[Rfam]
RNA sequence: CUGCGAGGACGACCUCGCGACUCAUCGAGUGACUUUCUGGGGACGACCCCA
Numbered sequence: 001c002u003g004c005g006a007g008g009a010c011g012a013c014c015u016c017g018c019g020a021c022u023c024a025u026c027g028a029g030u031g032a033c034u035u036u037c038u039g040g041g042g043a044c045g046a047c048c049c050c051a
Base pairs, nucleotide, nucleotide: 002019003018004017005016006015007014008013038051039050040049041048042047

This 51-nucleotide RNA sequence from Pseudomonas sp. TAD18 belongs to the Rfam family "Guanidine-II riboswitch aptamer (mini-ykkC)". Pairs were carried over by alignment from the consensus structure, which is taken from published work. The source organism's lineage runs through Bacteria, Pseudomonadati, Gammaproteobacteria, Pseudomonadaceae and Pseudomonas. A reference for the family is Sherlock et al. (2017), "Biochemical Validation of a Second Guanidine Riboswitch Class in Bacteria", Biochemistry. The family has 72 seed sequences and 1,589 matches in Rfam 15.1. From the family's description: Simpler in structure and has fewer highly conserved nucleotide positions than the ykkC-yxkD leader. Despite this each of its two stem-loop structures directly bind free guanidine. Therefore, mini-ykkC RNA motif represents a distinct class of guanidine-sensing RNAs.